This 132-nucleotide RNA from Rattus norvegicus belongs to the Rfam family "Small nucleolar RNA SNORA33". Lineage of the source: Eukaryota > Sarcopterygii > Amniota > Eutheria > Rattus. It is annotated as an H/ACA-box small nucleolar RNA. Its family is annotated with RNA processing and nucleolus in the Gene Ontology. Pairs were carried over by alignment from the consensus structure, which was predicted with PFOLD. Rfam 15.1 lists 1,176 matches to the family in 522 species.
RNA sequence: UAGCCAGCCAAUUAAUCUGCUUAUCUGAAUGUGUUUCUGCAAUAAUUUAGAAAAUGUUGGUAAUAGUGUUGUCAUGUAGUGAGCCUUAAAGACAAGUGACUGUUUUUAAAAUCCCUGAAAAUGGCUACAAUA
Number, nucleotide and partner (000 for none) at each position: 001u000002a000003g061004c060005c059006a058007g057008c000009c000010a000011a000012u000013u000014a000015a000016u000017c000018u041019g040020c039021u000022u000023a000024u000025c000026u000027g000028a000029a000030u000031g000032u000033g000034u000035u000036u000037c000038u000039g020040c019041a018042a000043u000044a000045a000046u000047u000048u000049a000050g000051a000052a000053a000054a000055u000056g000057u007058u006059g005060g004061u003062a000063a000064u000065a000066g000067u000068g000069u000070u000071g125072u124073c123074a122075u000076g000077u000078a000079g000080u000081g000082a000083g112084c000085c000086u109087u108088a107089a106090a000091g104092a103093c102094a000095a000096g000097u000098g000099a000100c000101u000102g093103u092104u091105u000106u089107u088108a087109a086110a000111a000112u083113c000114c000115c000116u000117g000118a000119a000120a000121a000122u074123g073124g072125c071126u000127a000128c000129a000130a000131u000132a000